The record is an 81-nucleotide RNA sequence, which matches "Makes More Granules Regulator RNA (mmgR)" in Rfam.
About the family: SuhB later renamed mmgR (makes more granules regulator) was a putative non-coding RNA found multiple times in the Agrobacterium tumefaciens genome and related alpha-proteobacteria. Other non-coding RNAs uncovered in the same analysis include: speF, ybhL, metA, and serC.Several studies inSinorhizobium meliloti showed that suhB element is indeed a non-coding RNA:firstly it was detected on Northern blot and called Sm8RNA, secondly in an RNAseq study referred to as SmelC689.The mutant phenotype's (strain lacking the small RNA) cytoplasm contains higher content of polyhydroxybutyrate (PBH)storage granules than wild type strain. The sRNA is required to limit the PBH intracellular accumulation when the nitrogen-fixing Sinorhizobium meliloti is under condition of surplus carbon in relation to nitrogen. It has been renamed to mmgR. Further study confirmed that mmgR fine-tunes the regulation of PBH storage.Northern blot confirmed the expression of the sRNA in other rhizobia species.
Its family is annotated with response to nitrogen compound, protein binding and DNA-templated transcription, termination in the Gene Ontology.
The family's RNA type in Rfam is small RNA.
The base pairs follow the family's consensus structure.
[Rfam]
RNA sequence: CGGACGGGCCUUUCAGGCAUCCUCUCCCAAGACUUUCAGAAGCCGGCCCCUUCUUUGGUGGCCGGCUUCUUUUUGCCUGCC
Number, nucleotide and partner (000 for none) at each position: 001c000002g000003g000004a000005c000006g000007g000008g018009c017010c016011u015012u000013u000014c000015a011016g010017g009018c008019a000020u000021c000022c000023u000024c000025u000026c000027c000028c000029a000030a000031g000032a000033c000034u000035u000036u000037c000038a000039g000040a000041a000042g066043c065044c064045g063046g062047c061048c060049c000050c058051u000052u000053c000054u000055u000056u000057g000058g050059u000060g048061g047062c046063c045064g044065g043066c042067u000068u000069c000070u000071u000072u000073u000074u000075g000076c000077c000078u000079g000080c000081c000
The match comes from Rfam's covariance-model search (43 bits).